[Rfam]
RNA sequence: GUCAACUACUCGGCACUGAAGUACCGAGCUUGUCUCGAUAACAGAAGUGCGUUCCUUUGAACAAGUUGACUACCCUAAGUCUUGAAACAGAGGCUACGUUAUACAAGAAUAUAUAGUCACCGGUGGGCGUUUGCUCUAACCUGCUGCUCUGAGGUAUGUGGUUAAACCAUUCUGUCGGGUAGGAAUCGUGCUGCAUAUGUAAAACCUUGUAUAACUUUGGGGAAGGGCAUCUUAC
Numbered sequence: 001g002u003c004a005a006c007u008a009c010u011c012g013g014c015a016c017u018g019a020a021g022u023a024c025c026g027a028g029c030u031u032g033u034c035u036c037g038a039u040a041a042c043a044g045a046a047g048u049g050c051g052u053u054c055c056u057u058u059g060a061a062c063a064a065g066u067u068g069a070c071u072a073c074c075c076u077a078a079g080u081c082u083u084g085a086a087a088c089a090g091a092g093g094c095u096a097c098g099u100u101a102u103a104c105a106a107g108a109a110u111a112u113a114u115a116g117u118c119a120c121c122g123g124u125g126g127g128c129g130u131u132u133g134c135u136c137u138a139a140c141c142u143g144c145u146g147c148u149c150u151g152a153g154g155u156a157u158g159u160g161g162u163u164a165a166a167c168c169a170u171u172c173u174g175u176c177g178g179g180u181a182g183g184a185a186u187c188g189u190g191c192u193g194c195a196u197a198u199g200u201a202a203a204a205c206c207u208u209g210u211a212u213a214a215c216u217u218u219g220g221g222g223a224a225g226g227g228c229a230u231c232u233u234a235c
Base pairs, nucleotide, nucleotide: 001070002069003068004067005066006065007064010028012025013024015022016021031045073221074220075219077217078095079094080093081092082091098215099214100213101212102211103210104209105208106207107206117152118151121146122145123144124143125142126141127140129231132229133228134227135226136225137224154198155197156196157195158194159193160192161191162190166189167188169186170185171184172183173182